[Rfam]
RNA sequence: ACGCAGAAGGGAGGUGGUCCAAACAAUGGUUGAUCAUUAUUGGGCUAGCGAGGUGGCUGUCCGCUAGGACUCGUCCAUCUGGACCCUCCGUCUGGAUGUCGUACGACGUCCCGGCGAAUCCUCGACAGACACCGGAACCCCGGGCAGCCGGCGGCCGCGGACGAAUGUCCUCGGCCAUGGUCCAGCCGGCCCGCCUCCUCAGGAGGCGGAGCGCGCCCGGGGUUCUUUCUUU
Numbered sequence: 001a002c003g004c005a006g007a008a009g010g011g012a013g014g015u016g017g018u019c020c021a022a023a024c025a026a027u028g029g030u031u032g033a034u035c036a037u038u039a040u041u042g043g044g045c046u047a048g049c050g051a052g053g054u055g056g057c058u059g060u061c062c063g064c065u066a067g068g069a070c071u072c073g074u075c076c077a078u079c080u081g082g083a084c085c086c087u088c089c090g091u092c093u094g095g096a097u098g099u100c101g102u103a104c105g106a107c108g109u110c111c112c113g114g115c116g117a118a119u120c121c122u123c124g125a126c127a128g129a130c131a132c133c134g135g136a137a138c139c140c141c142g143g144g145c146a147g148c149c150g151g152c153g154g155c156c157g158c159g160g161a162c163g164a165a166u167g168u169c170c171u172c173g174g175c176c177a178u179g180g181u182c183c184a185g186c187c188g189g190c191c192c193g194c195c196u197c198c199u200c201a202g203g204a205g206g207c208g209g210a211g212c213g214c215g216c217c218c219g220g221g222g223u224u225c226u227u228u229c230u231u232u
Base pairs, nucleotide, nucleotide: 013061014060015059016058017057018056062116063115064114065113067111068110070108072105073104074103134226135225136224137223138222139221140220141219142218143217144216145215

Rfam assigns this 232-nucleotide RNA sequence from Microbispora triticiradicis to the family "Actinobacteria sRNA Ms_IGR-5".
The family's RNA type in Rfam is small RNA.
The base pairs follow the family's consensus structure.